[Rfam]
Nucleotides: 082
Base pairs, nucleotide, nucleotide: 004079005078006077007076008075009074010073011072012071013070014069016067017066019064020063021061022060023059024058025057027055028054029053030052031051032050
Number, partner (000 for none) and nucleotide at each position: 001000g002000g003000c004079g005078a006077u007076u008075g009074u010073u011072c012071g013070u014069g015000a016067a017066g018000c019064u020063c021061a022060g023059c024058u025057g026000c027055a028054u029053u030052a031051c032050a033000c034000g035000a036000u037000a038000u039000g040000g041000a042000a043000u044000a045000c046000g047000g048000u049000u050032u051031g052030u053029a054028g055027u056000a057025c058024g059023g060022c061021u062000a063020g064019a065000a066017c067016u068000c069014c070013a071012c072011g073010g074009a075008c076007a077006a078005u079004u080000a081000c082000a

Shown here is an 82-nucleotide RNA from Aedes aegypti, a member of the family "mir-2941 microRNA precursor family". Rfam's curators put it in the seed alignment. Taxonomically the source falls in Stegomyia (Eukaryota, Pancrustacea, Altocrustacea, Neoptera). The family's consensus secondary structure was predicted with RNAalifold.